PyrR binding site: a 139-nucleotide RNA sequence from Cytobacillus horneckiae. Rfam classes the family as a cis-regulatory element.
RNA sequence: ACGCCUUUUAAAAAGAAUCCAGAGAGGUUCUCAAGGGUGUUGAAGAAUAAUAUUGGUAUGAGGUGUAUUCACACUGAAUAUCAAUUAUGAAAAUUCUAACUUCGACACCUUGGCGAUUACUGCCAAGGUGUUUUUUAAU
Numbered sequence: 001a002c003g004c005c006u007u008u009u010a011a012a013a014a015g016a017a018u019c020c021a022g023a024g025a026g027g028u029u030c031u032c033a034a035g036g037g038u039g040u041u042g043a044a045g046a047a048u049a050a051u052a053u054u055g056g057u058a059u060g061a062g063g064u065g066u067a068u069u070c071a072c073a074c075u076g077a078a079u080a081u082c083a084a085u086u087a088u089g090a091a092a093a094u095u096c097u098a099a100c101u102u103c104g105a106c107a108c109c110u111u112g113g114c115g116a117u118u119a120c121u122g123c124c125a126a127g128g129u130g131u132u133u134u135u136u137a138a139u
Base pairs, nucleotide, nucleotide: 003038004037005036006035007034008033014031015030016029017028018027019026053084054083055082056081057080058079059078062075063074064073065072066071104132105131106130107129108128109127110126111125112124113123114122115121

The match comes from Rfam's covariance-model search (63 bits). Pairs were carried over by alignment from the consensus structure, which is taken from published work. The source organism's lineage runs through Bacteria, Bacillati, Bacillota, Bacilli and Cytobacillus. About the family: This family represents the PyrR binding site and terminator structure. This RNA structure is found upstream of a variety of genes involved in pyrimidine biosynthesis and transport. The alignment also includes a portion of the antiterminator structure.